[Rfam]
RNA sequence: GAAGUGCGAACCAAGCGGGCACGACAGUGCCGUAAGACUUGGAGCGGGCGGUCGCAAGACCACCCUGCA
Numbered sequence: 001g002a003a004g005u006g007c008g009a010a011c012c013a014a015g016c017g018g019g020c021a022c023g024a025c026a027g028u029g030c031c032g033u034a035a036g037a038c039u040u041g042g043a044g045c046g047g048g049c050g051g052u053c054g055c056a057a058g059a060c061c062a063c064c065c066u067g068c069a
Base pairs, nucleotide, nucleotide: 011042012041013040014039015038018031019030020029021028022027046065047064048063050061051060052059053058
Dot-bracket structure: ..........(((((..(((((....)))))......)))))...(((.((((....)))).)))....